The family of this 71-nucleotide RNA sequence from Carpediemonas membranifera is "tRNA". Rfam classes the family as a transfer RNA.
[Rfam]
RNA sequence: GCGCCAGUAGUGUAGUGGCAUCACACUAGCCUUCCAAGCUGGUUACCCGGGUUCGAAUCCCGGCUGGUGCA
Numbered sequence: 001g002c003g004c005c006a007g008u009a010g011u012g013u014a015g016u017g018g019c020a021u022c023a024c025a026c027u028a029g030c031c032u033u034c035c036a037a038g039c040u041g042g043u044u045a046c047c048c049g050g051g052u053u054c055g056a057a058u059c060c061c062g063g064c065u066g067g068u069g070c071a
Base pairs, nucleotide, nucleotide: 001070002069003068004067005066006065007064010024011023012022026042027041028040029039030038047063048062049061050060051059